A member of the RNA family "Alphaproteobacterial sRNA ar35" from Arminella tubonensis, 142 nucleotides long. The pairing is the family consensus, mapped onto this sequence. The literature on the family includes a 2012 paper in RNA Biol by del Val et al., "A survey of sRNA families in alpha-proteobacteria". By type it is a small RNA. Lineage of the source: Bacteria > Pseudomonadati > Alphaproteobacteria > Hyphomicrobiales > Arminella. The match comes from Rfam's covariance-model search (71 bits).

[Rfam]
RNA sequence: AAAAUAUCGGCUUGGAUUUUAUUCUGAGUCUGUCAUGAUGACGGUAUUGAAUUUGUCUCCAACGCUGACCACGGAUGUACUGGCAGUGGUGUCGAGACAGAUCGAGGAAGGUCGGAACGGUAGCGUCCCGACCUUUUUCUUA
Number, nucleotide and partner (000 for none) at each position: 001a000002a000003a048004a047005u046006a045007u044008c043009g042010g000011c000012u000013u000014g000015g000016a039017u038018u037019u000020u035021a000022u000023u000024c000025u000026g000027a000028g000029u000030c000031u000032g000033u000034c000035a020036u000037g018038a017039u016040g000041a000042c009043g008044g007045u006046a005047u004048u003049g000050a000051a102052u101053u100054u099055g098056u097057c096058u000059c000060c091061a090062a000063c088064g000065c000066u085067g084068a000069c083070c082071a081072c000073g000074g000075a000076u000077g000078u000079a000080c000081u071082g070083g069084c067085a066086g000087u000088g063089g000090u061091g060092u000093c000094g000095a000096g057097a056098c055099a054100g053101a052102u051103c000104g139105a138106g137107g136108a135109a134110g133111g132112u131113c130114g129115g128116a000117a126118c125119g124120g000121u000122a000123g000124c119125g118126u117127c000128c115129c114130g113131a112132c111133c110134u109135u108136u107137u106138u105139c104140u000141u000142a000